[Rfam]
RNA sequence: GCGUUUGGGUAAUCGCUGCAUGCUUGUCAUGUAGAGGAAAGUCCAUGCUCGCACAGGCUGCGAUGCCUGUAGUGUUCGUGCCUAGUGAAUUCAUAAGCUAGGGCAGCCAAGGAUCUUGGCUGACGGCAGGGAAACGACCUAAGUCCUCUGGAUAUGGUCCGAAUACCUUGAAAGUGCCACAGUGACGGAGUCCAACUAGAAAUGGUUGGAGUGGAACGAGGUAAACCCCACGAGCGAGAAACCCAAAUUAUGGUAGGGGCGUGUUCUCUAAGGAAUUGAACGAUGAGAACGACAGAUGAUGUUUCAUCUGUAGAUAGAUGAUUACCACCUGAGUACGAGACACUUAGUCAGUCGCUUGGAGUACGAUGGUACAAAACAUGGCUUACAAAA
Numbered sequence: 001g002c003g004u005u006u007g008g009g010u011a012a013u014c015g016c017u018g019c020a021u022g023c024u025u026g027u028c029a030u031g032u033a034g035a036g037g038a039a040a041g042u043c044c045a046u047g048c049u050c051g052c053a054c055a056g057g058c059u060g061c062g063a064u065g066c067c068u069g070u071a072g073u074g075u076u077c078g079u080g081c082c083u084a085g086u087g088a089a090u091u092c093a094u095a096a097g098c099u100a101g102g103g104c105a106g107c108c109a110a111g112g113a114u115c116u117u118g119g120c121u122g123a124c125g126g127c128a129g130g131g132a133a134a135c136g137a138c139c140u141a142a143g144u145c146c147u148c149u150g151g152a153u154a155u156g157g158u159c160c161g162a163a164u165a166c167c168u169u170g171a172a173a174g175u176g177c178c179a180c181a182g183u184g185a186c187g188g189a190g191u192c193c194a195a196c197u198a199g200a201a202a203u204g205g206u207u208g209g210a211g212u213g214g215a216a217c218g219a220g221g222u223a224a225a226c227c228c229c230a231c232g233a234g235c236g237a238g239a240a241a242c243c244c245a246a247a248u249u250a251u252g253g254u255a256g257g258g259g260c261g262u263g264u265u266c267u268c269u270a271a272g273g274a275a276u277u278g279a280a281c282g283a284u285g286a287g288a289a290c291g292a293c294a295g296a297u298g299a300u301g302u303u304u305c306a307u308c309u310g311u312a313g314a315u316a317g318a319u320g321a322u323u324a325c326c327a328c329c330u331g332a333g334u335a336c337g338a339g340a341c342a343c344u345u346a347g348u349c350a351g352u353c354g355c356u357u358g359g360a361g362u363a364c365g366a367u368g369g370u371a372c373a374a375a376a377c378a379u380g381g382c383u384u385a386c387a388a389a390a
Stems, first nucleotide, its partner, number of pairs: 004390003007386001008326007016034006039384003043381005048238005053070006076233005081102006103124001104122006125228002128168003136159004143153003174226002176222003191210008242258003262291007292311008328369002333364004
RNA: Bacterial RNase P class B